[Rfam]
Shown here is a 136-nucleotide RNA sequence from Actinoplanes sp. ATCC 53533, a member of the family "c-di-AMP riboswitch aptamer (ydaO/yuaA leader)". A search with the family's covariance model found it, with a score of 77 bits.
RNA sequence: GGCAGCCCACCAUCUAAUCGUCGCAAGAUGAGCCGGGGAACCACAGAGACACCGGGGUGAAUCCACGAGUCAGUGGUAGGGAUCGCUUCCGUCCCGAACCCGUCAGCUAACCCGGCCGGUGGUCACGCGGAAGGAU
Numbered sequence: 001g002g003c004a005g006c007c008c009a010c011c012a013u014c015u016a017a018u019c020g021u022c023g024c025a026a027g028a029u030g031a032g033c034c035g036g037g038g039a040a041c042c043a044c045a046g047a048g049a050c051a052c053c054g055g056g057g058u059g060a061a062u063c064c065a066c067g068a069g070u071c072a073g074u075g076g077u078a079g080g081g082a083u084c085g086c087u088u089c090c091g092u093c094c095c096g097a098a099c100c101c102g103u104c105a106g107c108u109a110a111c112c113c114g115g116c117c118g119g120u121g122g123u124c125a126c127g128c129g130g131a132a133g134g135a136u
Base pairs, nucleotide, nucleotide: 011121012120013119014118018031019030020029032116033115034114035113036112037111042054055101056100057099063076064075065074066073079095080094081093082092
Dot-bracket structure: ..........((((...(((........)))((((((....(...........)(((.....((((......))))..((((.........))))...))).........)))))).))))...............

This family represents a conserved RNA structure found upstream of the ydaO and yuaA genes in Bacillus subtilis and related genes in other bacteria. The base pairs follow the family's consensus structure.